Small nucleolar RNA SNORD66: an 88-nucleotide sequence from Chinchilla lanigera. NCBI's taxonomy places the organism under Eukaryota, Metazoa, Vertebrata, Tetrapoda, Chinchilla. Rfam's curators write: snoRNA HBII-142 is part of the C/D family of snoRNAs. It is the human orthologue of the mouse MBII-142 snoRNA and is predicted to guide 2'O-ribose methylation of small 18S rRNA at residue C1272. The match comes from Rfam's covariance-model search (43 bits).
[Rfam]
RNA sequence: CUCCAUUGGUGACCUCUAUGUGGGCCACCAUGUCUGGGUCAUGGAAGUCCUGUGAUGGCAUCUAGGAGCUAUUGUAAGCCCUGUGGAG
Dot-bracket structure: ((((((............................................................................))))))
Numbered sequence: 001c002u003c004c005a006u007u008g009g010u011g012a013c014c015u016c017u018a019u020g021u022g023g024g025c026c027a028c029c030a031u032g033u034c035u036g037g038g039u040c041a042u043g044g045a046a047g048u049c050c051u052g053u054g055a056u057g058g059c060a061u062c063u064a065g066g067a068g069c070u071a072u073u074g075u076a077a078g079c080c081c082u083g084u085g086g087a088g
Stems, first nucleotide, its partner, number of pairs: 001088006